[Rfam]
RNA sequence: AUUUGGCUUAAUCUCAGCUGGCAACUGUGAGCAGUUUCUAACUCUCUCACAGUUGUAGCUGGGAUUAUGUUAAAC
Number, nucleotide and partner (000 for none) at each position: 001a000002u000003u073004u072005g071006g070007c069008u000009u067010a066011a065012u064013c063014u062015c061016a060017g059018c000019u000020g000021g056022c055023a053024a000025c000026u051027g050028u049029g048030a047031g046032c000033a000034g000035u000036u000037u000038c000039u000040a000041a000042c000043u000044c000045u000046c031047u030048c029049a028050c027051a026052g000053u023054u000055g022056u021057a000058g000059c017060u016061g015062g014063g013064a012065u011066u010067a009068u000069g007070u006071u005072a004073a003074a000075c000
The record is a 75-nucleotide RNA sequence from Elachura formosa, which matches "mir-216 microRNA precursor family" in Rfam. It scores 76 bits against the family's covariance model.